[Rfam]
RNA sequence: GGAUAACACUGUUUUGCUAUUCUCAGCCAAUAACACAAUGACAUAUGGAAAAGUUAUUCUACAUGUCAUUGCGUUAUUAGCUGGAGAUAGCAAAAAGUGAUACCA
Numbered sequence: 001g002g003a004u005a006a007c008a009c010u011g012u013u014u015u016g017c018u019a020u021u022c023u024c025a026g027c028c029a030a031u032a033a034c035a036c037a038a039u040g041a042c043a044u045a046u047g048g049a050a051a052a053g054u055u056a057u058u059c060u061a062c063a064u065g066u067c068a069u070u071g072c073g074u075u076a077u078u079a080g081c082u083g084g085a086g087a088u089a090g091c092a093a094a095a096a097g098u099g100a101u102a103c104c105a
Base pairs, nucleotide, nucleotide: 002104004102005101012095013094014093015092016091017090018089019088020087023084024083025082026081027080029078030077031076032075033074034073036071037070038069039068040067041066042065043064044063046061047060048059049058050057
RNA: MIR6274 microRNA precursor family